[Rfam]
RNA sequence: CACCCCGGUGCGACCUGCGCCUCCUAUGAACUACCCACUGGGGAUAAAGCACCCCACCAAGCCCCACCCCUCCCUCCCGCCGCGCAAACUCACUCCCGCGAGUGAAUAUGCCCAACUGGGCUGGAUUCGCACCCGGUUGCCUGCCUUACGCUCACCGCAGCAAGAAGCAACCCCAGACAUGCGACGGCCCCCGCCGGGAGUAGCGAUCCCUGCGAGGGCCUGACCACCGAGGAAGCUAGGACCUUCCUG
Numbered sequence: 001c002a003c004c005c006c007g008g009u010g011c012g013a014c015c016u017g018c019g020c021c022u023c024c025u026a027u028g029a030a031c032u033a034c035c036c037a038c039u040g041g042g043g044a045u046a047a048a049g050c051a052c053c054c055c056a057c058c059a060a061g062c063c064c065c066a067c068c069c070c071u072c073c074c075u076c077c078c079g080c081c082g083c084g085c086a087a088a089c090u091c092a093c094u095c096c097c098g099c100g101a102g103u104g105a106a107u108a109u110g111c112c113c114a115a116c117u118g119g120g121c122u123g124g125a126u127u128c129g130c131a132c133c134c135g136g137u138u139g140c141c142u143g144c145c146u147u148a149c150g151c152u153c154a155c156c157g158c159a160g161c162a163a164g165a166a167g168c169a170a171c172c173c174c175a176g177a178c179a180u181g182c183g184a185c186g187g188c189c190c191c192c193g194c195c196g197g198g199a200g201u202a203g204c205g206a207u208c209c210c211u212g213c214g215a216g217g218g219c220c221u222g223a224c225c226a227c228c229g230a231g232g233a234a235g236c237u238a239g240g241a242c243c244u245u246c247c248u249g
Stems, first nucleotide, its partner, number of pairs: 007228004017076001019074001090105006120156001122154003186220005192214003196210004231247005
The family of this 249-nucleotide RNA from Streptomyces sp. Amel2xC10 is "Streptomyces sRNA 4677".
Located in the intergenic region between anti-sigma factor SCO4677 gene and a putative regulatory protein gene SCO4676. scr4677 expression requires the SCO4677 activity and scr4677 sRNA itself seem to affect the levels of the SCO4676-associated transcripts.
A search with the family's covariance model found it, with a score of 169 bits.
Lineage of the source: Bacteria > Actinomycetes > Kitasatosporales > Streptomycetaceae > Streptomyces.
The literature on the family includes a 2014 paper in PLoS One by Hindra et al., "Complex intra-operonic dynamics mediated by a small RNA in Streptomyces coelicolor".